Nucleotides: 096
Base pairs, nucleotide, nucleotide: 002091003090004089005088006087007086013080014079015078016077018076019075020074021073026070027069028068029067030066
Number, partner (000 for none) and nucleotide at each position: 001000g002091g003090g004089c005088u006087g007086g008000c009000u010000a011000u012000a013080g014079c015078u016077c017000a018076g019075c020074g021073g022000u023000u024000c025000c026070u027069u028068c029067g030066a031000c032000c033000g034000c035000a036000u037000u038000g039000u040000g041000a042000u043000u044000c045000a046000a047000c048000c049000a050000c051000c052000c053000u054000u055000c056000c057000g058000a059000g060000a061000g062000u063000g064000g065000u066030u067029c068028g069027a070026g071000a072000c073021c074020c075019g076018c077016g078015g079014g080013c081000g082000c083000u084000c085000u086007c087006c088005a089004g090003c091002c092000c093000u094000u095000u096000u